[Rfam]
RNA sequence: GCGAUCCGGACGCCGAAUCCUGUCACCGGUUCGUGACCAGACGUUCAAGACAGGAGCGGGGGACCCAUUCCCGGGCGACAGCAGGAUCGUCGUCCUCGGGGUGAAGCCGGACGGUACCCCCUUGUAAGCCGUGCGGCCGGGUAGCACUCCUCACCCGAACCCGACAGCUGACCUCGCAGGCGGUACAGGAGACCUUA
Numbered sequence: 001g002c003g004a005u006c007c008g009g010a011c012g013c014c015g016a017a018u019c020c021u022g023u024c025a026c027c028g029g030u031u032c033g034u035g036a037c038c039a040g041a042c043g044u045u046c047a048a049g050a051c052a053g054g055a056g057c058g059g060g061g062g063a064c065c066c067a068u069u070c071c072c073g074g075g076c077g078a079c080a081g082c083a084g085g086a087u088c089g090u091c092g093u094c095c096u097c098g099g100g101g102u103g104a105a106g107c108c109g110g111a112c113g114g115u116a117c118c119c120c121c122u123u124g125u126a127a128g129c130c131g132u133g134c135g136g137c138c139g140g141g142u143a144g145c146a147c148u149c150c151u152c153a154c155c156c157g158a159a160c161c162c163g164a165c166a167g168c169u170g171a172c173c174u175c176g177c178a179g180g181c182g183g184u185a186c187a188g189g190a191g192a193c194c195u196u197a
Stems, first nucleotide, its partner, number of pairs: 011182004018055007056177006066098001099162003107136003139156004
Dot-bracket structure: ..........((((...(((((((........................)))))))((((((....(...............................)(((.....(((........................)))..((((..........))))...))).........)))))).))))...............
A member of the RNA family "c-di-AMP riboswitch aptamer (ydaO/yuaA leader)" from Promicromonospora sukumoe, 197 nucleotides long. About the family: This family represents a conserved RNA structure found upstream of the ydaO and yuaA genes in Bacillus subtilis and related genes in other bacteria.